[Rfam]
RNA sequence: GCUCUUGGCAAACCUUUAAGCGCUACCUAUAUAUGAGAUGUCCGCAAGGACUAUGGACAUAAACGCGCCCGUAAUAAGCGGUUCGGACCCGGGGGCGGUACCCGGCGACUCCACCAAUCACCCGUUCAUUUGACGGCGGAGGGGGUCGAAAUAGGAUCGACGAACGUCUAAAGGGGUUAGCUUUGUUUCGGCUGGGUGCCACCGUAUCGGCCCAAAAUGUACAAUUGCAAAUGACAAUCGUGCUCCAAUGGCGAUGGCAGCGUAAGCUACCGGAACUAUUGAAAACUUAAGCCCUACGGUUUAGCGACUUUAGGCGGGGUUCGCAGGUACCUGGCAACAGAAACCUGCACU
Numbered sequence: 001g002c003u004c005u006u007g008g009c010a011a012a013c014c015u016u017u018a019a020g021c022g023c024u025a026c027c028u029a030u031a032u033a034u035g036a037g038a039u040g041u042c043c044g045c046a047a048g049g050a051c052u053a054u055g056g057a058c059a060u061a062a063a064c065g066c067g068c069c070c071g072u073a074a075u076a077a078g079c080g081g082u083u084c085g086g087a088c089c090c091g092g093g094g095g096c097g098g099u100a101c102c103c104g105g106c107g108a109c110u111c112c113a114c115c116a117a118u119c120a121c122c123c124g125u126u127c128a129u130u131u132g133a134c135g136g137c138g139g140a141g142g143g144g145g146u147c148g149a150a151a152u153a154g155g156a157u158c159g160a161c162g163a164a165c166g167u168c169u170a171a172a173g174g175g176g177u178u179a180g181c182u183u184u185g186u187u188u189c190g191g192c193u194g195g196g197u198g199c200c201a202c203c204g205u206a207u208c209g210g211c212c213c214a215a216a217a218u219g220u221a222c223a224a225u226u227g228c229a230a231a232u233g234a235c236a237a238u239c240g241u242g243c244u245c246c247a248a249u250g251g252c253g254a255u256g257g258c259a260g261c262g263u264a265a266g267c268u269a270c271c272g273g274a275a276c277u278a279u280u281g282a283a284a285a286c287u288u289a290a291g292c293c294c295u296a297c298g299g300u301u302u303a304g305c306g307a308c309u310u311u312a313g314g315c316g317g318g319g320u321u322c323g324c325a326g327g328u329a330c331c332u333g334g335c336a337a338c339a340g341a342a343a344c345c346u347g348c349a350c351u
Base pairs, nucleotide, nucleotide: 040051041050042049043048055188056187057186058185059184065181066180067177068176069175070174079166080165083163084162085161089105090104091103092102093101106148107147108146109145110144111143112142189204190203191202195213196212198211199210200209317332318331319330320329323348324347325346326345327344328343
This 351-nucleotide RNA sequence from Planktotalea frisia belongs to the Rfam family "Alphaproteobacteria transfer-messenger RNA". The organism belongs to Planktotalea, within Bacteria. By type it is a non-coding RNA gene. Gene Ontology term of the family: RNA catabolic process. The family is grouped with related families in Rfam's "tRNA clan".